[Rfam]
The family of this 126-nucleotide RNA sequence from Enterobacteriaceae bacterium RIT714 is "RtT RNA".
The literature on the family includes a 1991 paper in Nucleic Acids Res by Bosl and Kersten, "A novel RNA product of the tyrT operon of Escherichia coli".
It scores 68 bits against the family's covariance model.
Rfam classes the family as a cis-regulatory element.
Pairs were carried over by alignment from the consensus structure, which is taken from published work.
Rfam's curators write: This family represents a bacterial cis-regulatory element known as RtT RNA. The exact function of RtT is unknown although it is thought that it may be involved in changing the cellular response in relation to amino acid starvation.
RNA sequence: UGCUAUGCCCGAUUCGGCAGGAUGAGAAUCUGUUGCAGGUUCGAAUCGAACGAAGUGAGACACCGGAGCCACGAACGGCGACGGCCCGAAGGGUGAGCGAAGCGAGUCAUCCUGCACGACCCACCA
Numbered sequence: 001u002g003c004u005a006u007g008c009c010c011g012a013u014u015c016g017g018c019a020g021g022a023u024g025a026g027a028a029u030c031u032g033u034u035g036c037a038g039g040u041u042c043g044a045a046u047c048g049a050a051c052g053a054a055g056u057g058a059g060a061c062a063c064c065g066g067a068g069c070c071a072c073g074a075a076c077g078g079c080g081a082c083g084g085c086c087c088g089a090a091g092g093g094u095g096a097g098c099g100a101a102g103c104g105a106g107u108c109a110u111c112c113u114g115c116a117c118g119a120c121c122c123a124c125c126a
Stems, first nucleotide, its partner, number of pairs: 017115005023109001034093001040090004047057002064083002068079002